[Rfam]
RNA sequence: ACCAUACCCAUGUGUGUAAGAUCUCAAAAGAUCACCAUUAAAUUUGACACAGAUCUCUAGAAAAGUUAUCACAUGAGUGUGGGACUUGAUUUUUUUAGAGAUCUAUACCAAAUUUAAUGGUGAUCUUUUGGGGUCCUACAUACAUGGGUGUGAG
Numbered sequence: 001a002c003c004a005u006a007c008c009c010a011u012g013u014g015u016g017u018a019a020g021a022u023c024u025c026a027a028a029a030g031a032u033c034a035c036c037a038u039u040a041a042a043u044u045u046g047a048c049a050c051a052g053a054u055c056u057c058u059a060g061a062a063a064a065g066u067u068a069u070c071a072c073a074u075g076a077g078u079g080u081g082g083g084a085c086u087u088g089a090u091u092u093u094u095u096u097a098g099a100g101a102u103c104u105a106u107a108c109c110a111a112a113u114u115u116a117a118u119g120g121u122g123a124u125c126u127u128u129u130g131g132g133g134u135c136c137u138a139c140a141u142a143c144a145u146g147g148g149u150g151u152g153a154g
Stems, first nucleotide, its partner, number of pairs: 003152011015140004020135009030125003034121013049106001051104018069082005

This 154-nucleotide RNA from Amborella trichopoda belongs to the Rfam family "MIR8565 microRNA precursor family". Gene Ontology terms of the family: RISC complex and miRNA-mediated post-transcriptional gene silencing. It scores 140 bits against the family's covariance model.